[Rfam]
RNA: Bacteriophage MS2 operator hairpin
RNA sequence: AUAUUCCUGCCAUACAAGCAUGAGGAUCACCCAUGU
Numbered sequence: 001a002u003a004u005u006c007c008u009g010c011c012a013u014a015c016a017a018g019c020a021u022g023a024g025g026a027u028c029a030c031c032c033a034u035g036u
Stems, first nucleotide, its partner, number of pairs: 018036005024031002